[Rfam]
RNA sequence: UACCGUAUGAUGAGUUAACUCGGAUUCCCCUUCAGGACAUCAUGAAUGAUGCAUACUCGAGUUUUCUGAUGGU
Numbered sequence: 001u002a003c004c005g006u007a008u009g010a011u012g013a014g015u016u017a018a019c020u021c022g023g024a025u026u027c028c029c030c031u032u033c034a035g036g037a038c039a040u041c042a043u044g045a046a047u048g049a050u051g052c053a054u055a056c057u058c059g060a061g062u063u064u065u066c067u068g069a070u071g072g073u
Base pairs, nucleotide, nucleotide: 002073003072004071005070
RNA: Small nucleolar RNA snoR60
Organism: Rhamnella rubrinervis